[Rfam]
RNA sequence: ACACUCACUGGGGCUUGGUCCUCUCCAUGUGGUUGUGACCCGCCCCCCCCCCCCGUGAGUGAGAGAAACAGGACUGGUUUGGGGGUGUCCUGUCCAAGUGGACACGGGAGACCACGGUUUCCAGCACAACA
Numbered sequence: 001a002c003a004c005u006c007a008c009u010g011g012g013g014c015u016u017g018g019u020c021c022u023c024u025c026c027a028u029g030u031g032g033u034u035g036u037g038a039c040c041c042g043c044c045c046c047c048c049c050c051c052c053c054c055g056u057g058a059g060u061g062a063g064a065g066a067a068a069c070a071g072g073a074c075u076g077g078u079u080u081g082g083g084g085g086u087g088u089c090c091u092g093u094c095c096a097a098g099u100g101g102a103c104a105c106g107g108g109a110g111a112c113c114a115c116g117g118u119u120u121c122c123a124g125c126a127c128a129a130c131a
Base pairs, nucleotide, nucleotide: 003060004059005058006057007056008055012044013043014042017040018039019038020037025032026031071127074124075123076122077121079117080116081115084113085112086111088109089108090107091106092103093102094101095100

Shown here is a 131-nucleotide RNA sequence from Neomonachus schauinslandi, a member of the family "Small Cajal body specific RNA 23". Its family is annotated with Cajal body, nucleolus and RNA processing in the Gene Ontology. The literature on the family includes a 2002 paper in EMBO J by Darzacq et al., "Cajal body-specific small nuclear RNAs: a novel class of 2'-O-methylation and pseudouridylation guide RNAs". scaRNAs are a specific class of small nuclear RNAs which localise to the Cajal bodies and guide the modification of RNA polymerase II transcribed spliceosomal RNAs U1, U2, U4, U5 and U12. ACA11 belongs to the H/ACA box class of guide RNAs as it has the predicted hairpin-hinge-hairpin-tail structure,the conserved H/ACA-box motifs and is found associated with GAR1. H/ACA snRNAs are predicted to guide the modification of uridines to pseudouridines in substrate RNAs however, no target RNA has been identified for scaRNA ACA11. The source organism's lineage runs through Eukaryota, Eumetazoa, Dipnotetrapodomorpha, Mammalia and Neomonachus.